[Rfam]
RNA: pan motif
Organism: Paenibacillus sp. FSL H8-0548
RNA sequence: CAGGCGGUAUUCUUAACGAAGCUGCACUGAGAUGAUUAAACAUUUGUGAAUGAUUGGUAAUGCACACUCUGCUCUGAGCCGUAGGGACCGAGACAGAAGG
Numbered sequence: 001c002a003g004g005c006g007g008u009a010u011u012c013u014u015a016a017c018g019a020a021g022c023u024g025c026a027c028u029g030a031g032a033u034g035a036u037u038a039a040a041c042a043u044u045u046g047u048g049a050a051u052g053a054u055u056g057g058u059a060a061u062g063c064a065c066a067c068u069c070u071g072c073u074c075u076g077a078g079c080c081g082u083a084g085g086g087a088c089c090g091a092g093a094c095a096g097a098a099g100g
Base pairs, nucleotide, nucleotide: 001029002028003027004025005024006023007022008021010020011019069096070095071094072092073091074090076088079086080085